[Rfam]
RNA sequence: GAGUCUUUUUGGGGACAGUGAAAUUCUGUACCGGCGGUAAAGUCCGCGAGCGAAAGCUGAGUUGGUUAAAUUCCAACACCGAUGGUAAAGUCCAGAUGAGAAAAAAGAAAC
Number, nucleotide and partner (000 for none) at each position: 001g000002a000003g000004u108005c107006u106007u105008u104009u103010u102011g000012g000013g000014g000015a000016c028017a027018g026019u000020g000021a000022a000023a000024u000025u000026c018027u017028g016029u000030a091031c090032c081033g080034g047035c046036g045037g044038u000039a000040a000041a000042g079043u078044c037045c036046g035047c034048g000049a000050g057051c056052g000053a000054a000055a000056g051057c050058u000059g000060a000061g077062u076063u075064g074065g073066u000067u000068a000069a000070a000071u000072u000073c065074c064075a063076a062077c061078a043079c042080c033081g032082a000083u094084g093085g092086u000087a000088a000089a000090g031091u030092c085093c084094a083095g000096a000097u000098g000099a000100g000101a000102a010103a009104a008105a007106a006107g005108a004109a000110a000111c000